[Rfam]
RNA sequence: GGGUGAGGUAGAGGCGCGAUAUCUAUUAGUCUUUAGUGGAGCUUGAGAAACUAUGAAACUAUUGAGAAGGAGAUGUCGCCGAAGUUUGUAAUACACUCGAUGUUACUUGCUGGGUCUGUAGUUAAUAACUGCAGGACUGUCUCAAUGAACGUCCUAGUUCGUUGAGUUGAGCUAUCUCAUUU
Numbered sequence: 001g002g003g004u005g006a007g008g009u010a011g012a013g014g015c016g017c018g019a020u021a022u023c024u025a026u027u028a029g030u031c032u033u034u035a036g037u038g039g040a041g042c043u044u045g046a047g048a049a050a051c052u053a054u055g056a057a058a059c060u061a062u063u064g065a066g067a068a069g070g071a072g073a074u075g076u077c078g079c080c081g082a083a084g085u086u087u088g089u090a091a092u093a094c095a096c097u098c099g100a101u102g103u104u105a106c107u108u109g110c111u112g113g114g115u116c117u118g119u120a121g122u123u124a125a126u127a128a129c130u131g132c133a134g135g136a137c138u139g140u141c142u143c144a145a146u147g148a149a150c151g152u153c154c155u156a157g158u159u160c161g162u163u164g165a166g167u168u169g170a171g172c173u174a175u176c177u178c179a180u181u182u
Base pairs, nucleotide, nucleotide: 006177007176008175009174010173011172016079017078018077019076020075021074022073023072024071031064034061035060036059037058083111084110085109088106089105090104091103092102093101112138113137115135116134117133118132119131120130121129122128141166142165143164144163145162146161147160148159149158
Rfam assigns this 182-nucleotide RNA from Viridibacillus arenosi to the family "Lysine riboswitch aptamer". From the family's description: Riboswitches are metabolite binding domains within certain messenger RNAs that serve as precision sensors for their corresponding targets. Lineage of the source: Bacteria > Bacillota > Bacilli > Viridibacillus > Viridibacillus arenosi.